[Rfam]
RNA: Bacteroidales-1 6S-Bacteroidales RNA suggested
Organism: Alloprevotella tannerae
RNA sequence: GGCUGUACCGGUUAGAUUGGGAAUCUCAUCAAUAAUUAACUGAAAACCGAGAAUGCCACUUUUUUCGAUGGCGUGCCGAUACGUUUCGACGGGGUCGGAUUACAAAGAUCUAAGAGGCGCUCAAAUCUUAUUUUAGCUCGGAGUUUCAUCACAUCAUCGGUACAGCUCUUUUU
Numbered sequence: 001g002g003c004u005g006u007a008c009c010g011g012u013u014a015g016a017u018u019g020g021g022a023a024u025c026u027c028a029u030c031a032a033u034a035a036u037u038a039a040c041u042g043a044a045a046a047c048c049g050a051g052a053a054u055g056c057c058a059c060u061u062u063u064u065u066c067g068a069u070g071g072c073g074u075g076c077c078g079a080u081a082c083g084u085u086u087c088g089a090c091g092g093g094g095u096c097g098g099a100u101u102a103c104a105a106a107g108a109u110c111u112a113a114g115a116g117g118c119g120c121u122c123a124a125a126u127c128u129u130a131u132u133u134u135a136g137c138u139c140g141g142a143g144u145u146u147c148a149u150c151a152c153a154u155c156a157u158c159g160g161u162a163c164a165g166c167u168c169u170u171u172u173u
Stems, first nucleotide, its partner, number of pairs: 055118003059114003065108002069104002076098004082091003